[Rfam]
RNA sequence: GCACGCAGCGGCGGUUGUCCCGCCGCUGCGUGCCGAUGCAGAACCAGCCGGGGCUCACAAAGCUCCGGUUCUUGAUUAAAAAAUGACCAGCAGGGGCAACCGGGCUGGAACCCGGACAUCUGCGGGAUCCGAAGUGGCUUUACCCAAGUCGCUGCUCUGGACUUUUGGGCCACACGGUCUCCUCGUCAGGUGGUGUCCCCUUACCGAGGGUGACCU
Numbered sequence: 001g002c003a004c005g006c007a008g009c010g011g012c013g014g015u016u017g018u019c020c021c022g023c024c025g026c027u028g029c030g031u032g033c034c035g036a037u038g039c040a041g042a043a044c045c046a047g048c049c050g051g052g053g054c055u056c057a058c059a060a061a062g063c064u065c066c067g068g069u070u071c072u073u074g075a076u077u078a079a080a081a082a083a084u085g086a087c088c089a090g091c092a093g094g095g096g097c098a099a100c101c102g103g104g105c106u107g108g109a110a111c112c113c114g115g116a117c118a119u120c121u122g123c124g125g126g127a128u129c130c131g132a133a134g135u136g137g138c139u140u141u142a143c144c145c146a147a148g149u150c151g152c153u154g155c156u157c158u159g160g161a162c163u164u165u166u167g168g169g170c171c172a173c174a175c176g177g178u179c180u181c182c183u184c185g186u187c188a189g190g191u192g193g194u195g196u197c198c199c200c201u202u203a204c205c206g207a208g209g210g211u212g213a214c215c216u
Base pairs, nucleotide, nucleotide: 001033002032003031004030005029006028007027008026009025010024011023012022013021046070047069048068049067050066051065053063054062055061092201093200094199095198096197097195098194100115101114102113103112104111117192118191119190120189122186123185124184126181127180129177130176134173135172136171137170138168146164147163148162149161150160

The family of this 216-nucleotide sequence from Pseudomonas oryzae is "sucA-II RNA". The organism belongs to Pseudomonas, within Bacteria. The base pairs follow the family's consensus structure, which is taken from published work.